[Rfam]
RNA sequence: AGGGCGGCAUCAGAUUAGAGCCGCACCGUUUUCUGUUUUGGCCGGACAUAACCGCUUGGAGCCGCUGCGGACCGAGACGGGAGG
Dot-bracket structure: .(((((((.((......))))))).))........................((((((((..((.....)).))))).)))....
Numbered sequence: 001a002g003g004g005c006g007g008c009a010u011c012a013g014a015u016u017a018g019a020g021c022c023g024c025a026c027c028g029u030u031u032u033c034u035g036u037u038u039u040g041g042c043c044g045g046a047c048a049u050a051a052c053c054g055c056u057u058g059g060a061g062c063c064g065c066u067g068c069g070g071a072c073c074g075a076g077a078c079g080g081g082a083g084g
Stems, first nucleotide, its partner, number of pairs: 002027002004024005010019002052080003055076005062070002